[Rfam]
RNA sequence: CAUCCUCCUUACGUCCCACCCCCCACUCCUGUUUCUGGUGAAAUAUUCAAACAGGAGUGGGGGUGGGACAUAAGGAGGAUA
Numbered sequence: 001c002a003u004c005c006u007c008c009u010u011a012c013g014u015c016c017c018a019c020c021c022c023c024c025a026c027u028c029c030u031g032u033u034u035c036u037g038g039u040g041a042a043a044u045a046u047u048c049a050a051a052c053a054g055g056a057g058u059g060g061g062g063g064u065g066g067g068a069c070a071u072a073a074g075g076a077g078g079a080u081a
Base pairs, nucleotide, nucleotide: 002080003079004078005077006076007075008074009073010072011071013069014068015067016066017065018064020063021062022061023060024059025058026057027056028055029054030053031052032051033050034049
Source information: The family of this 81-nucleotide RNA sequence from Homo sapiens is "mir-4433 microRNA precursor family". Lineage of the source: Eukaryota > Eumetazoa > Vertebrata > Euarchontoglires > Homo. The base pairs follow the family's consensus structure, which was predicted with RNAalifold. Its family is annotated with miRNA-mediated post-transcriptional gene silencing and RISC complex in the Gene Ontology.